The family of this 47-nucleotide RNA sequence from Virgibacillus phasianinus is "PreQ1 (pre queuosine) riboswitch aptamer". Taxonomically the source falls in Virgibacillus (Bacteria, Bacillati, Caryophanales, Bacillaceae). A reference for the family is Reader et al. (2004), "Identification of four genes necessary for biosynthesis of the modified nucleoside queuosine", J Biol Chem. From the family's description: This family is a bacterial riboswitch that binds to the metabolite preQ1, an intermediate in the biosynthesis of the modified nucleoside queuosine from GTP. One example of this riboswitch is located in the leader of the Bacillus subtilis ykvJKLM (queCDEF) operon which encodes four genes necessary for queuosine production. PreQ1 binding to the riboswitch aptamer is thought to induce premature transcription termination within the leader to down-regulate expression of these genes.
[Rfam]
RNA sequence: ACAGAAGAGGUUCUUAGGGUUAACCCUCUAUAAAAAACUAAGGACAG
Number, nucleotide and partner (000 for none) at each position: 001a000002c000003a000004g000005a000006a029007g028008a027009g026010g025011u000012u000013c000014u000015u040016a039017g000018g000019g000020u000021u000022a000023a000024c000025c010026c009027u008028c007029u006030a000031u000032a000033a000034a000035a000036a000037a000038c000039u016040a015041a000042g000043g000044a000045c000046a000047g000